[Rfam]
RNA sequence: UGGCAACAGUGAUGACAUGAGCUGUAACUGUCUGGAGUGUCCCAGUACUGCAUGGAGACAACAGUCCCUCUAAGCUGACGUUGCCA
Numbered sequence: 001u002g003g004c005a006a007c008a009g010u011g012a013u014g015a016c017a018u019g020a021g022c023u024g025u026a027a028c029u030g031u032c033u034g035g036a037g038u039g040u041c042c043c044a045g046u047a048c049u050g051c052a053u054g055g056a057g058a059c060a061a062c063a064g065u066c067c068c069u070c071u072a073a074g075c076u077g078a079c080g081u082u083g084c085c086a
Stems, first nucleotide, its partner, number of pairs: 001086007
RNA: Small nucleolar RNA SNORD127